Overview:
The record is a 95-nucleotide RNA from Nannospalax galili, which matches "G-CSF factor stem-loop destabilising element (SLDE)" in Rfam. The source organism's lineage runs through Eukaryota, Eumetazoa, Tetrapoda, Spalacinae and Nannospalax. The family's RNA type in Rfam is cis-regulatory element. The family's consensus secondary structure is taken from published work. For this family Rfam cites "RNA destabilization by the granulocyte colony-stimulating factor stem-loop destabilizing element involves a single stem-loop that promotes deadenylation" (Putland et al., Mol Cell Biol, 2002). Rfam links the family to the GO term nuclear-transcribed mRNA poly(A) tail shortening. This family represents the granulocyte colony-stimulating factor stem-loop destabilising element (G-CSF SLDE). G-CSF is secreted by fibroblasts and endothelial cells in response to the inflammatory mediators interleukin-1 (IL-1) and tumour necrosis factor alpha and by activated macrophages. The synthesis of G-CSF is regulated both transcriptionally and through control of mRNA stability. A search with the family's covariance model found it, with a score of 92 bits.

[Rfam]
RNA sequence: CUAAGGUACCUACUUCAGGGCCCAGGGAGCAUCAGGAGGUCUCCCAUGUGGGAGACAAAAUAUCCCUGUUUAAUAUUUAAACAGCAGCGUUCCCC
Numbered sequence: 001c002u003a004a005g006g007u008a009c010c011u012a013c014u015u016c017a018g019g020g021c022c023c024a025g026g027g028a029g030c031a032u033c034a035g036g037a038g039g040u041c042u043c044c045c046a047u048g049u050g051g052g053a054g055a056c057a058a059a060a061u062a063u064c065c066c067u068g069u070u071u072a073a074u075a076u077u078u079a080a081a082c083a084g085c086a087g088c089g090u091u092c093c094c095c
Stems, first nucleotide, its partner, number of pairs: 005023002009019003032060001039056007066084008